This 104-nucleotide RNA sequence from Agrobacterium bohemicum belongs to the Rfam family "TPP riboswitch aptamer (THI element)".
Vitamin B(1) in its active form thiamin pyrophosphate (TPP) is an essential coenzyme that is synthesised by coupling of pyrimidine and thiazole moieties in bacteria.
Lineage of the source: Bacteria > Pseudomonadati > Alphaproteobacteria > Hyphomicrobiales > Agrobacterium.
Rfam links the family to the GO term thiamine pyrophosphate binding.
Pairs were carried over by alignment from the consensus structure, which is taken from published work.

RNA sequence: AGACAUUCCGAGGGGAGCAUCUUAACGAUGCUGAGAUGGCGCUGAGCCGGACCCUUGAACCUGAUCCGGGUCAUGCCGGCGUAGGAACGGAACAGUCGCCAACG
Numbered sequence: 001a002g003a004c005a006u007u008c009c010g011a012g013g014g015g016a017g018c019a020u021c022u023u024a025a026c027g028a029u030g031c032u033g034a035g036a037u038g039g040c041g042c043u044g045a046g047c048c049g050g051a052c053c054c055u056u057g058a059a060c061c062u063g064a065u066c067c068g069g070g071u072c073a074u075g076c077c078g079g080c081g082u083a084g085g086a087a088c089g090g091a092a093c094a095g096u097c098g099c100c101a102a103c104g
Base pairs, nucleotide, nucleotide: 006092007091008090009089010088011055012054013053014052017031018030019029020028021027038048039047040046060085061084062083063082066079067078068077069076